Record summary: A member of the RNA family "Archaeal large subunit ribosomal RNA" from uncultured crenarchaeote 4B7, 104 nucleotides of a longer RNA. Pairs were carried over by alignment from the consensus structure, which is taken from published work.
[Rfam]
RNA sequence: UGCGUAGCAUGAAAGGUGAUUUUUCUUGAUUGGAGGUUCUAGCAAUAGAGCUAAAGAUCUUGAGCUCAAAUCAUCAGUGUUACGCGUUCCGUCUCGAAACACGG
Dot-bracket structure: ((((((((((....((.........((((.(...(....((((......)))).....)....).))))....)).))))))))))..((((........))))
Numbered sequence: 001u002g003c004g005u006a007g008c009a010u011g012a013a014a015g016g017u018g019a020u021u022u023u024u025c026u027u028g029a030u031u032g033g034a035g036g037u038u039c040u041a042g043c044a045a046u047a048g049a050g051c052u053a054a055a056g057a058u059c060u061u062g063a064g065c066u067c068a069a070a071u072c073a074u075c076a077g078u079g080u081u082a083c084g085c086g087u088u089c090c091g092u093c094u095c096g097a098a099a100c101a102c103g104g
Stems, first nucleotide, its partner, number of pairs: 001086010015075002026069004031064001035059001040053004089104004